[Rfam]
The record is a 381-nucleotide RNA from Mycena sanguinolenta, which matches "RNase MRP" in Rfam. NCBI's taxonomy places the organism under Eukaryota, Basidiomycota, Agaricales, Marasmiineae, Mycena. Pairs were carried over by alignment from the consensus structure, which is taken from published work. Rfam classes the family as a ribozyme. A search with the family's covariance model found it, with a score of 105 bits. About the family: RNase MRP is an enzymatically active ribonucleoprotein with two distinct roles in eukaryotes. In mitochondria it plays a direct role in the initiation of mitochondrial DNA replication.
RNA sequence: GCGCCGUCUGAAGAAUCGUUGUCGCAGCUUCCGCACAGAGAGCGUCUGCUCUCUACCUUUGCUGUGGGGAAAGUCCCCGGAGAUGCGGAGCAUGUCCUCGUCCACUAAUGGAAACCAACCAGCUCUAAGCACGUCGGUCUGGGCGAGGACGGCGGGAUCACUCUGCGCAGUCUGUAUCAACAGUCUGUUGCUCUGUCCAGCCACUCCGCUGCCCAGCUGAGGGCACACCACUCGGCGAAGGCUCCAGGCUGCGAAGAUACGAGCAUCCUGUUGCUCGGGUGGUGUGUCCGACGCUGGGCAACUCGUUUCUCAUAGACACAGUUAUACGAUUGUUGACCCUUCCAGGGUCCUCAACUCAAUGGGGCUCACUCUCAUUCGGCG
Numbered sequence: 001g002c003g004c005c006g007u008c009u010g011a012a013g014a015a016u017c018g019u020u021g022u023c024g025c026a027g028c029u030u031c032c033g034c035a036c037a038g039a040g041a042g043c044g045u046c047u048g049c050u051c052u053c054u055a056c057c058u059u060u061g062c063u064g065u066g067g068g069g070a071a072a073g074u075c076c077c078c079g080g081a082g083a084u085g086c087g088g089a090g091c092a093u094g095u096c097c098u099c100g101u102c103c104a105c106u107a108a109u110g111g112a113a114a115c116c117a118a119c120c121a122g123c124u125c126u127a128a129g130c131a132c133g134u135c136g137g138u139c140u141g142g143g144c145g146a147g148g149a150c151g152g153c154g155g156g157a158u159c160a161c162u163c164u165g166c167g168c169a170g171u172c173u174g175u176a177u178c179a180a181c182a183g184u185c186u187g188u189u190g191c192u193c194u195g196u197c198c199a200g201c202c203a204c205u206c207c208g209c210u211g212c213c214c215a216g217c218u219g220a221g222g223g224c225a226c227a228c229c230a231c232u233c234g235g236c237g238a239a240g241g242c243u244c245c246a247g248g249c250u251g252c253g254a255a256g257a258u259a260c261g262a263g264c265a266u267c268c269u270g271u272u273g274c275u276c277g278g279g280u281g282g283u284g285u286g287u288c289c290g291a292c293g294c295u296g297g298g299c300a301a302c303u304c305g306u307u308u309c310u311c312a313u314a315g316a317c318a319c320a321g322u323u324a325u326a327c328g329a330u331u332g333u334u335g336a337c338c339c340u341u342c343c344a345g346g347g348u349c350c351u352c353a354a355c356u357c358a359a360u361g362g363g364g365c366u367c368a369c370u371c372u373c374a375u376u377c378g379g380c381g
Base pairs, nucleotide, nucleotide: 002381003380004379005378006377009374010373011372014331015330016329017328018327019326022067023066024065025064026063027062028061038053039052040051041050042049043048072366073365075364076363077362078361084169085168086167087166170185172183173182174181175180187302188301189300196298197297198296199295200294201293205291206290208288209284212281270274335349336348337347338346